[Rfam]
RNA sequence: AGCACUUUGUGCUUUUAAGUUGUAGACAAAGACUCACAGAUAACUGCUAAACAUAAAUUCUCUUUUGCAAUCCAGAGCUCAUGAUUCAGUAUGAGUUUGGAUACAUAUAAGGCAUGUGAUACC
Numbered sequence: 001a002g003c004a005c006u007u008u009g010u011g012c013u014u015u016u017a018a019g020u021u022g023u024a025g026a027c028a029a030a031g032a033c034u035c036a037c038a039g040a041u042a043a044c045u046g047c048u049a050a051a052c053a054u055a056a057a058u059u060c061u062c063u064u065u066u067g068c069a070a071u072c073c074a075g076a077g078c079u080c081a082u083g084a085u086u087c088a089g090u091a092u093g094a095g096u097u098u099g100g101a102u103a104c105a106u107a108u109a110a111g112g113c114a115u116g117u118g119a120u121a122c123c
Stems, first nucleotide, its partner, number of pairs: 001048004006043002008038001011033001013031004057120003061116001063112005073100001075098008